[Rfam]
RNA: c-di-GMP-I-GGC riboswitch aptamer
Organism: Olavius algarvensis associated proteobacterium Delta 3
RNA sequence: AAUGAUAAAGCCAAACCUGCCGUAAGACAGGGACGGAAAGCCACGGGUCUCUCCGGGGCGGUGCCACAGAUCCAUGUAGUGAGAGAAAGCCGGGCUGCCGAGU
Numbered sequence: 001a002a003u004g005a006u007a008a009a010g011c012c013a014a015a016c017c018u019g020c021c022g023u024a025a026g027a028c029a030g031g032g033a034c035g036g037a038a039a040g041c042c043a044c045g046g047g048u049c050u051c052u053c054c055g056g057g058g059c060g061g062u063g064c065c066a067c068a069g070a071u072c073c074a075u076g077u078a079g080u081g082a083g084a085g086a087a088a089g090c091c092g093g094g095c096u097g098c099c100g101a102g103u
Stems, first nucleotide, its partner, number of pairs: 001103001003100002011036002016031004021026001034089001039096004044092003048086006
Dot-bracket structure: (.((......((...((((.(....).))))..[))..((((.(((.((((((...........................))))))..])))))))..))..)